[Rfam]
RNA: terC RNA
RNA sequence: UCGUCGAUCCGGGCCCCUCUGACGGCGCCGUUGCCGUGAUGUCGGAUCUUUCAC
Number, nucleotide and partner (000 for none) at each position: 001u000002c000003g000004u000005c000006g048007a047008u046009c045010c044011g043012g042013g000014c000015c000016c000017c000018u000019c000020u000021g000022a037023c036024g035025g034026c033027g032028c000029c000030g000031u000032u027033g026034c025035c024036g023037u022038g000039a000040u000041g000042u012043c011044g010045g009046a008047u007048c006049u000050u000051u000052c000053a000054c000